Overview: This 120-nucleotide RNA from Auxenochlorella protothecoides belongs to the Rfam family "Small nucleolar RNA SNORD14". On this family, see Samarsky et al., Nucleic Acids Res 1996: "An essential domain in Saccharomyces cerevisiae U14 snoRNA is absent in vertebrates, but conserved in other yeasts". The base pairs follow the family's consensus structure, which was predicted with PFOLD. Taxonomically the source falls in Auxenochlorella (Eukaryota, Viridiplantae, Chlorophyta, Trebouxiophyceae). From the family's description: U14 small nucleolar RNA (U14 snoRNA) is required for early cleavages of eukaryotic precursor rRNAs. In yeasts, this molecule possess a stem-loop region (known as the Y-domain) which is essential for function. A similar structure, but with a different consensus sequence, is found in plants, but is absent in vertebrates.

[Rfam]
RNA sequence: GCCGAGGAUGACAAUUUCCUAGGGCGUUUCUCAAAACAUUCGCAGUGCCCGAUCUAGAGCUUUCGCCUCGCCAGGCUUGAGAGCUGCUGCGGCUUUAUCCUUCCUUGGAUGUCUGACGGC
Numbered sequence: 001g002c003c004g005a006g007g008a009u010g011a012c013a014a015u016u017u018c019c020u021a022g023g024g025c026g027u028u029u030c031u032c033a034a035a036a037c038a039u040u041c042g043c044a045g046u047g048c049c050c051g052a053u054c055u056a057g058a059g060c061u062u063u064c065g066c067c068u069c070g071c072c073a074g075g076c077u078u079g080a081g082a083g084c085u086g087c088u089g090c091g092g093c094u095u096u097a098u099c100c101u102u103c104c105u106u107g108g109a110u111g112u113c114u115g116a117c118g119g120c
Stems, first nucleotide, its partner, number of pairs: 001120004059084006